Background:
mir-5316 microRNA precursor family: an 89-nucleotide sequence from Rhipicephalus microplus. Gene Ontology terms of the family: miRNA-mediated post-transcriptional gene silencing and RISC complex. Taxonomically the source falls in Boophilus (Eukaryota, Ixodida, Ixodoidea, Rhipicephalus). The match comes from Rfam's covariance-model search (93 bits).
[Rfam]
RNA sequence: GUGCCAUGUGCAGGCUCGCGAAAAUGUUCUGGUUGGCAUUCGUUGAAUAAUUUGUCACCGGGGCCUUUUCGACUAGCUUUCCGUGGUUU
Numbered sequence: 001g002u003g004c005c006a007u008g009u010g011c012a013g014g015c016u017c018g019c020g021a022a023a024a025u026g027u028u029c030u031g032g033u034u035g036g037c038a039u040u041c042g043u044u045g046a047a048u049a050a051u052u053u054g055u056c057a058c059c060g061g062g063g064c065c066u067u068u069u070c071g072a073c074u075a076g077c078u079u080u081c082c083g084u085g086g087u088u089u
Stems, first nucleotide, its partner, number of pairs: 003087005012079005018073001019071006026064008035056004